[Rfam]
RNA: Small nucleolar RNA SNORA61
Organism: Cnephaeus nilssonii
RNA sequence: ACCCUCUGGUUCUUUCCCAUCGGAUCUGAACUCCGACCUUGGUGGUCGCAGAGGAGGAAAAGUAAUUCUGAAGCUGGCCUCACAGAGCGUCGUCUGUGGGCUCGUUUCAAACGAGG
Numbered sequence: 001a002c003c004c005u006c007u008g009g010u011u012c013u014u015u016c017c018c019a020u021c022g023g024a025u026c027u028g029a030a031c032u033c034c035g036a037c038c039u040u041g042g043u044g045g046u047c048g049c050a051g052a053g054g055a056g057g058a059a060a061a062g063u064a065a066u067u068c069u070g071a072a073g074c075u076g077g078c079c080u081c082a083c084a085g086a087g088c089g090u091c092g093u094c095u096g097u098g099g100g101c102u103c104g105u106u107u108c109a110a111a112c113g114a115g116g
Stems, first nucleotide, its partner, number of pairs: 003057005017045005023038001025036002074104001076102005089094001